[Rfam]
RNA sequence: ACCAUCCGGGGACCUUGUUAAAAGGCAGGUUCUGAUUCAGUAGGUUUGAGGUAGGUUCUGGGAUUCUGCAUUUCUAGCAAGUUCCCAGCUGAAGUCAA
Numbered sequence: 001a002c003c004a005u006c007c008g009g010g011g012a013c014c015u016u017g018u019u020a021a022a023a024g025g026c027a028g029g030u031u032c033u034g035a036u037u038c039a040g041u042a043g044g045u046u047u048g049a050g051g052u053a054g055g056u057u058c059u060g061g062g063a064u065u066c067u068g069c070a071u072u073u074c075u076a077g078c079a080a081g082u083u084c085c086c087a088g089c090u091g092a093a094g095u096c097a098a
Stems, first nucleotide, its partner, number of pairs: 003091002009085003014081007021073003025069005031063003
Shown here is a 98-nucleotide RNA from Phyllostomus discolor, a member of the family "mir-544 microRNA precursor family". The family's consensus secondary structure was predicted with RNAalifold. Rfam links the family to the GO terms miRNA-mediated post-transcriptional gene silencing and RISC complex.